RNA sequence: GGGGAUGUAAUGGUUUCGACAUGUAGUAGGUAGUGUUCGCAUCAGUGGUGUAGUAGACCAUAAAUACUUCUAGGCUUUAUAGUCGCAAACAAAAACAAAAAAGCUCACGUUGGGCUACAAAAUUUAGUAAUUGCAAAUCAAUUACAAUCAAAUCUAGCUUUCGCUUAAUUCUGCGAACUAGUGCAUUAUCGUUAGAGCCUAAGAACGAUAGUGUGGUAAUUUAGGCUCGGUUUUUUCUCGUGCUUAGAAAAAACUUAAAUUGAAUGCACACUAAAAGUCAAGAGUUUUGUUUAUUUCCUUUAACUUUUAGCACUAAUAAAUAAACUAAACUGUAAAAAGUGCAAACACAUCUUGUUAUGUGGACGCGGGUUCAACUCCCGUCAUCUCCACCA
Numbered sequence: 001g002g003g004g005a006u007g008u009a010a011u012g013g014u015u016u017c018g019a020c021a022u023g024u025a026g027u028a029g030g031u032a033g034u035g036u037u038c039g040c041a042u043c044a045g046u047g048g049u050g051u052a053g054u055a056g057a058c059c060a061u062a063a064a065u066a067c068u069u070c071u072a073g074g075c076u077u078u079a080u081a082g083u084c085g086c087a088a089a090c091a092a093a094a095a096c097a098a099a100a101a102a103g104c105u106c107a108c109g110u111u112g113g114g115c116u117a118c119a120a121a122a123u124u125u126a127g128u129a130a131u132u133g134c135a136a137a138u139c140a141a142u143u144a145c146a147a148u149c150a151a152a153u154c155u156a157g158c159u160u161u162c163g164c165u166u167a168a169u170u171c172u173g174c175g176a177a178c179u180a181g182u183g184c185a186u187u188a189u190c191g192u193u194a195g196a197g198c199c200u201a202a203g204a205a206c207g208a209u210a211g212u213g214u215g216g217u218a219a220u221u222u223a224g225g226c227u228c229g230g231u232u233u234u235u236u237c238u239c240g241u242g243c244u245u246a247g248a249a250a251a252a253a254c255u256u257a258a259a260u261u262g263a264a265u266g267c268a269c270a271c272u273a274a275a276a277g278u279c280a281a282g283a284g285u286u287u288u289g290u291u292u293a294u295u296u297c298c299u300u301u302a303a304c305u306u307u308u309a310g311c312a313c314u315a316a317u318a319a320a321u322a323a324a325c326u327a328a329a330c331u332g333u334a335a336a337a338a339g340u341g342c343a344a345a346c347a348c349a350u351c352u353u354g355u356u357a358u359g360u361g362g363a364c365g366c367g368g369g370u371u372c373a374a375c376u377c378c379c380g381u382c383a384u385c386u387c388c389a390c391c392a
Stems, first nucleotide, its partner, number of pairs: 001388007020361010033348005038341003042337001043332004050070001052068004160177005184213010197226007230254008244268001273308006280301002284298001289325004294318001365381005

Overview:
This 392-nucleotide RNA from Mycoplasmopsis californica belongs to the Rfam family "transfer-messenger RNA". Rfam classes the family as a non-coding RNA gene. Rfam's curators write: Bacterial tmRNA, also known as 10Sa RNA or SsrA, is named for its dual tRNA and mRNA-like properties. The source organism's lineage runs through Bacteria, Bacillati, Mycoplasmoidales, Metamycoplasmataceae and Mycoplasmopsis. Rfam links the family to the GO term RNA catabolic process. The family's consensus secondary structure is taken from published work. On this family, see Felden et al., RNA 1997: "Probing the structure of the Escherichia coli 10Sa RNA (tmRNA)".